[Rfam]
RNA sequence: GGAUGUGAGGGCGAUCUGGCUGCGACAUCUGUCACCCCAUUGAUCGCCAGGGUUGAUUCGGCUGAUCUGGCUGGCUAGGCGGGUGUCCCCUUCCUCCCUCACCGCUCCAUGUGCGUCCCUCCCGAAGCUGCGCGCUCGGUCGAAGAGGACGACCUUCCCCGAUAGAGGCGUACCGUUCAUCGGUCAAGGGUAUACGGUAGCUGCGCUCCCCUGCUAGAACCUCCAAACAAGCUCAAGGUCUGAGAAUUCAGAAUAUGAUAUUUUGCAUGUGUUUAAAUAGUGUAAACAUUUUAUAAAACCAGUUAUUUGUU
Numbered sequence: 001g002g003a004u005g006u007g008a009g010g011g012c013g014a015u016c017u018g019g020c021u022g023c024g025a026c027a028u029c030u031g032u033c034a035c036c037c038c039a040u041u042g043a044u045c046g047c048c049a050g051g052g053u054u055g056a057u058u059c060g061g062c063u064g065a066u067c068u069g070g071c072u073g074g075c076u077a078g079g080c081g082g083g084u085g086u087c088c089c090c091u092u093c094c095u096c097c098c099u100c101a102c103c104g105c106u107c108c109a110u111g112u113g114c115g116u117c118c119c120u121c122c123c124g125a126a127g128c129u130g131c132g133c134g135c136u137c138g139g140u141c142g143a144a145g146a147g148g149a150c151g152a153c154c155u156u157c158c159c160c161g162a163u164a165g166a167g168g169c170g171u172a173c174c175g176u177u178c179a180u181c182g183g184u185c186a187a188g189g190g191u192a193u194a195c196g197g198u199a200g201c202u203g204c205g206c207u208c209c210c211c212u213g214c215u216a217g218a219a220c221c222u223c224c225a226a227a228c229a230a231g232c233u234c235a236a237g238g239u240c241u242g243a244g245a246a247u248u249c250a251g252a253a254u255a256u257g258a259u260a261u262u263u264u265g266c267a268u269g270u271g272u273u274u275a276a277a278u279a280g281u282g283u284a285a286a287c288a289u290u291u292u293a294u295a296a297a298a299c300c301a302g303u304u305a306u307u308u309g310u311u
Stems, first nucleotide, its partner, number of pairs: 001108003005102007013093002018090002024087010035074002037070003042067004046062003117170001118168004122139004127135002140162003147158003200262001202260001207255001211251003221244003231240001279311003285304003289298003
The record is a 311-nucleotide RNA from Asarcornis scutulata, which matches "7SK RNA" in Rfam. Pairs were carried over by alignment from the consensus structure, which is taken from published work. 7SK was discovered as an abundant small nuclear RNA in the mid-70s but a possible function has only recently been suggested. Two independent studies have found that 7SK RNA binds the CDK9/cyclin T complex (known as elongation factor P-TEFb). P-TEFb activates transcription by phosphorylating the C-terminal domain of RNA polymerase II. This process is negatively regulated by the 7SK RNP. The secondary structure of 7SK RNA shown here was proposed by Wasserman and Steitz on the basis of chemical modification and enzymatic cleavage experiments. This family contains a number of annotated pseudogenes and 7SK derived repeats. The source organism's lineage runs through Eukaryota, Chordata, Teleostomi, Coelurosauria and Asarcornis. By type it is a non-coding RNA gene.